RNA sequence: ACCCCCGGUCAGUUUUGCUGGUUUGCAUUCAGCUUUUAAGACUGUGCGCUGUGCAAAUCCAUGCAAAACUGAUUGUGGCA
Numbered sequence: 001a002c003c004c005c006c007g008g009u010c011a012g013u014u015u016u017g018c019u020g021g022u023u024u025g026c027a028u029u030c031a032g033c034u035u036u037u038a039a040g041a042c043u044g045u046g047c048g049c050u051g052u053g054c055a056a057a058u059c060c061a062u063g064c065a066a067a068a069c070u071g072a073u074u075g076u077g078g079c080a
Base pairs, nucleotide, nucleotide: 003078004077006075007074008073009072010071011070012069013068014067015066016065017064018063020060021059022057023056024055025054026053027052028051031050032049033048

The family of this 80-nucleotide RNA sequence from Danio rerio is "mir-19 microRNA precursor family". On this family, see Houbaviy et al., Dev Cell 2003: "Embryonic stem cell-specific MicroRNAs". The sequence is in the family's curated seed alignment. Pairs were carried over by alignment from the consensus structure, which was predicted with RNAalifold.